[Rfam]
RNA sequence: CCCCCAAGGGGAAGCGAAGACCCUAUAGAGCUUUACUGCAGGCUGUCGCUGAGACGUGGUCGCCGAUGUGCAGCAUAGGUAGGAGUCAUUACACAGGUACCCGCGCCAGCGGGCCACCGAGACAACAUUGAAAUACUACCCGUCGGUGACUGCGACUCUCACUCCGGGAGGAGUACACCGGUAGCCGGGCAGUUUGACUGGGGCGGUACGCGCUCGAAAAGAUAUCGAGCGCGCCCGAAGAUCAUCUCAGCCGGGUCGGGAAUCCGGCGAAGAGCGCAAGAGCACAAGAUGGUCUGACAGUGUCAUUCCCAACGAGUGACGCUGACGCGAAAGCGUGGUCUAGCGAACCUACGAGGCUCCGGAAUGGGGCCCGUAGAUGACAGAAAAGCUACCUUAGGGAUAACAGAGUCGUCACCCGCAAGAGCACAUAUCGACCGGGUGGCUUGCUACCUCGAUGUCGGUUCCCUCCAUCCUGCCCGUGCAGAAGCGGGCAAGGGUGAGGUUGUUCGCCUAUUAAAGGAGGUCGUGAGCUGGGUUUAGACCGUCGUGAGACAGGUCGGCUGCUAUCUAUUGGGGGUGUCAA
Numbered sequence: 001c002c003c004c005c006a007a008g009g010g011g012a013a014g015c016g017a018a019g020a021c022c023c024u025a026u027a028g029a030g031c032u033u034u035a036c037u038g039c040a041g042g043c044u045g046u047c048g049c050u051g052a053g054a055c056g057u058g059g060u061c062g063c064c065g066a067u068g069u070g071c072a073g074c075a076u077a078g079g080u081a082g083g084a085g086u087c088a089u090u091a092c093a094c095a096g097g098u099a100c101c102c103g104c105g106c107c108a109g110c111g112g113g114c115c116a117c118c119g120a121g122a123c124a125a126c127a128u129u130g131a132a133a134u135a136c137u138a139c140c141c142g143u144c145g146g147u148g149a150c151u152g153c154g155a156c157u158c159u160c161a162c163u164c165c166g167g168g169a170g171g172a173g174u175a176c177a178c179c180g181g182u183a184g185c186c187g188g189g190c191a192g193u194u195u196g197a198c199u200g201g202g203g204c205g206g207u208a209c210g211c212g213c214u215c216g217a218a219a220a221g222a223u224a225u226c227g228a229g230c231g232c233g234c235c236c237g238a239a240g241a242u243c244a245u246c247u248c249a250g251c252c253g254g255g256u257c258g259g260g261a262a263u264c265c266g267g268c269g270a271a272g273a274g275c276g277c278a279a280g281a282g283c284a285c286a287a288g289a290u291g292g293u294c295u296g297a298c299a300g301u302g303u304c305a306u307u308c309c310c311a312a313c314g315a316g317u318g319a320c321g322c323u324g325a326c327g328c329g330a331a332a333g334c335g336u337g338g339u340c341u342a343g344c345g346a347a348c349c350u351a352c353g354a355g356g357c358u359c360c361g362g363a364a365u366g367g368g369g370c371c372c373g374u375a376g377a378u379g380a381c382a383g384a385a386a387a388g389c390u391a392c393c394u395u396a397g398g399g400a401u402a403a404c405a406g407a408g409u410c411g412u413c414a415c416c417c418g419c420a421a422g423a424g425c426a427c428a429u430a431u432c433g434a435c436c437g438g439g440u441g442g443c444u445u446g447c448u449a450c451c452u453c454g455a456u457g458u459c460g461g462u463u464c465c466c467u468c469c470a471u472c473c474u475g476c477c478c479g480u481g482c483a484g485a486a487g488c489g490g491g492c493a494a495g496g497g498u499g500a501g502g503u504u505g506u507u508c509g510c511c512u513a514u515u516a517a518a519g520g521a522g523g524u525c526g527u528g529a530g531c532u533g534g535g536u537u538u539a540g541a542c543c544g545u546c547g548u549g550a551g552a553c554a555g556g557u558c559g560g561c562u563g564c565u566a567u568c569u570a571u572u573g574g575g576g577g578u579g580u581c582a583a
Base pairs, nucleotide, nucleotide: 001577002576003575004574005573006572007571010569011568012567014564015563022398023397024396025395027394028393029390030389031388032387033386035193036192037191038190042185043184044183045182046181047180048179051158052157053156055154056153057152058151059150060149061148062147063146064145065144066143067142068141078140079139080138081137082136085123086122087121100113101112102111103110104109162173163172164171165170196209197207198206199205210232211231212230213229214228215227235338236337241293242292243291244290245289246288247273248272250268251267252266253265254264255263274283275282298324299323300322301321302320303319304318305317306316326335328333349376350375351374352373353372355371356370357369358368359367407448408447409446411445412442413441414440415439416438417437418436422432423431459534460532461531462530463529464526465523466522467521468520469519472497473496476491477490478489479488480487500512501511502510503509540558541557542556543555544553545552546551
The record is a 583-nucleotide part of an RNA from Halorubrum lacusprofundi, which matches "Archaeal large subunit ribosomal RNA" in Rfam. Clan: LSU clan. The sequence is in the family's curated seed alignment. Gene Ontology terms of the family: structural constituent of ribosome and ribosome.